[Rfam]
RNA: Burkholderia RNA 7 (anti-hemB)
Organism: Roseateles toxinivorans
RNA sequence: UCCCUGCUUUUCCUCCCUGAGCAGGAGCCUUAGCGUGAUGACAGCGAUAAGGCUUUCCAGCCCCGGCCCAAGGUCGGGGCUUUUUUUU
Numbered sequence: 001u002c003c004c005u006g007c008u009u010u011u012c013c014u015c016c017c018u019g020a021g022c023a024g025g026a027g028c029c030u031u032a033g034c035g036u037g038a039u040g041a042c043a044g045c046g047a048u049a050a051g052g053c054u055u056u057c058c059a060g061c062c063c064c065g066g067c068c069c070a071a072g073g074u075c076g077g078g079g080c081u082u083u084u085u086u087u088u
Stems, first nucleotide, its partner, number of pairs: 003025006027053006060080008